[Rfam]
RNA sequence: GGGGCCGGUGGCGCAGCGGACCCCUCAAGGACCGUCUUGAGAAGGACUGGGACUUCCCCCCUGCCCCAACCCAUCACCUGAUCAGGUGAUUUGGGACGAGGACGCGGGGAGGGGGCGGUAUGGUCGCCGCAGACGACACCGCAUACACGACGGCCCCGGCGGGGACGGCAAUCCCGGCCGGGGCCUGACCAGUUAAGGAAGACGCAACUUCCCC
Numbered sequence: 001g002g003g004g005c006c007g008g009u010g011g012c013g014c015a016g017c018g019g020a021c022c023c024c025u026c027a028a029g030g031a032c033c034g035u036c037u038u039g040a041g042a043a044g045g046a047c048u049g050g051g052a053c054u055u056c057c058c059c060c061c062u063g064c065c066c067c068a069a070c071c072c073a074u075c076a077c078c079u080g081a082u083c084a085g086g087u088g089a090u091u092u093g094g095g096a097c098g099a100g101g102a103c104g105c106g107g108g109g110a111g112g113g114g115g116c117g118g119u120a121u122g123g124u125c126g127c128c129g130c131a132g133a134c135g136a137c138a139c140c141g142c143a144u145a146c147a148c149g150a151c152g153g154c155c156c157c158g159g160c161g162g163g164g165a166c167g168g169c170a171a172u173c174c175c176g177g178c179c180g181g182g183g184c185c186u187g188a189c190c191a192g193u194u195a196a197g198g199a200a201g202a203c204g205c206a207a208c209u210u211c212c213c214c
Stems, first nucleotide, its partner, number of pairs: 007194002009191002016061001018059002085128007152185005158179003162175004197212005